The family of this 197-nucleotide RNA sequence from Paenibacillus catalpae is "glmS glucosamine-6-phosphate activated ribozyme aptamer".
Rfam classes the family as a riboswitch.

[Rfam]
RNA sequence: AACGUUUCAUAAGCGCCAGAGCUUGCGUGAUGAUUCGCCUUAUGGAGUAAGAGGCAUAAGGGAUCAUACGGGAAGCUGACGAGGUGAAGGUGUUCGAAUUAUUCGGCGGGGACCUUCCGGUUAUUGCAAAGCCAACCGAAAGCCGAUACGCAAAAGGAUUGGGCGACCGAUCUCACAAACGUUCGGCAGGCUGCACU
Numbered sequence: 001a002a003c004g005u006u007u008c009a010u011a012a013g014c015g016c017c018a019g020a021g022c023u024u025g026c027g028u029g030a031u032g033a034u035u036c037g038c039c040u041u042a043u044g045g046a047g048u049a050a051g052a053g054g055c056a057u058a059a060g061g062g063a064u065c066a067u068a069c070g071g072g073a074a075g076c077u078g079a080c081g082a083g084g085u086g087a088a089g090g091u092g093u094u095c096g097a098a099u100u101a102u103u104c105g106g107c108g109g110g111g112a113c114c115u116u117c118c119g120g121u122u123a124u125u126g127c128a129a130a131g132c133c134a135a136c137c138g139a140a141a142g143c144c145g146a147u148a149c150g151c152a153a154a155a156g157g158a159u160u161g162g163g164c165g166a167c168c169g170a171u172c173u174c175a176c177a178a179a180c181g182u183u184c185g186g187c188a189g190g191c192u193g194c195a196c197u
Base pairs, nucleotide, nucleotide: 020077021076022075023074024073026071028068086117087116088115089114090113094106095105096104097103118138119137120136121135122134142187143186144185145184146183156173157172158171159170160169161168162167

Background: From the family's description: This entry contains a glucosamine-6-phosphate activated ribozyme that is found in the mRNA for GlmS. GlmS is an enzyme that uses fructose-6-phosphate and glutamine to generate glucosamine-6-phosphate. The ribozyme catalyses self cleavage of the glmS mRNA that is thought to regulate GlmS activity. Pairs were carried over by alignment from the consensus structure, which is taken from published work. The literature on the family includes a 2004 paper in Nature by Winkler et al., "Control of gene expression by a natural metabolite-responsive ribozyme".